Archaeal large subunit ribosomal RNA: a 358-nucleotide part of an RNA from Haloferax mediterranei.
The family's consensus secondary structure is taken from published work.
It is one of the family's seed sequences.
Clan: LSU clan.
The organism belongs to Haloferax, within Archaea.
[Rfam]
RNA sequence: CGGGGUCAACCGACGUUAGGGAAUUCGGCAAGUUAGUCCCGUAAGUUCGCGAUAAGGGAUACCUGCUCUUGAUAGAGCAGGUCGCAGUGACUCGGACGCUCCGACUGUCUAGUAACAACAUAGGUGACCGCAAAUCCGCAAGGACUCGUACGGUCACUGAAUCCUGCCCAGUGCGGGUAUCUGAACACCCAUUACAAUGGGACGAAGGACCCGUCAACGGCGGGGGUAACUAUGACCCUCUUAAGGUAGCGUAGUACCUUGCCGCUUCAGUAGCGGCUUGCAUGAAUGGAUCAACGAGAGCGUCACUGUCCCAACGUUGGGCCCGGUGAACAGUACGUUCCAGUGCGGAGUCUGGAGA
Numbered sequence: 001c002g003g004g005g006u007c008a009a010c011c012g013a014c015g016u017u018a019g020g021g022a023a024u025u026c027g028g029c030a031a032g033u034u035a036g037u038c039c040c041g042u043a044a045g046u047u048c049g050c051g052a053u054a055a056g057g058g059a060u061a062c063c064u065g066c067u068c069u070u071g072a073u074a075g076a077g078c079a080g081g082u083c084g085c086a087g088u089g090a091c092u093c094g095g096a097c098g099c100u101c102c103g104a105c106u107g108u109c110u111a112g113u114a115a116c117a118a119c120a121u122a123g124g125u126g127a128c129c130g131c132a133a134a135u136c137c138g139c140a141a142g143g144a145c146u147c148g149u150a151c152g153g154u155c156a157c158u159g160a161a162u163c164c165u166g167c168c169c170a171g172u173g174c175g176g177g178u179a180u181c182u183g184a185a186c187a188c189c190c191a192u193u194a195c196a197a198u199g200g201g202a203c204g205a206a207g208g209a210c211c212c213g214u215c216a217a218c219g220g221c222g223g224g225g226g227u228a229a230c231u232a233u234g235a236c237c238c239u240c241u242u243a244a245g246g247u248a249g250c251g252u253a254g255u256a257c258c259u260u261g262c263c264g265c266u267u268c269a270g271u272a273g274c275g276g277c278u279u280g281c282a283u284g285a286a287u288g289g290a291u292c293a294a295c296g297a298g299a300g301c302g303u304c305a306c307u308g309u310c311c312c313a314a315c316g317u318u319g320g321g322c323c324c325g326g327u328g329a330a331c332a333g334u335a336c337g338u339u340c341c342a343g344u345g346c347g348g349a350g351u352c353u354g355g356a357g358a
Stems, first nucleotide, its partner, number of pairs: 001325004010320008019311003036060005045050001061082009083087001095304007102296002106120003123158008131148001135144003161291004166221003171218002173214005180209003188201004222240006241245001261277006339356005
Dot-bracket structure: ((((.....((((((((.(((..............(((((....(....).....)))))(((((((((....)))))))))(...).......(((((((((..(((.........)))..(((((((((...(((....)))...)..))))))))..((((.(((..(((((((..(((.....((((......)))).....))))))))..)))))((((((.......))))))(...)...............((((((.....))))))..........))))...)).)))))))....))).)))))))).)))).............(((((........)))))..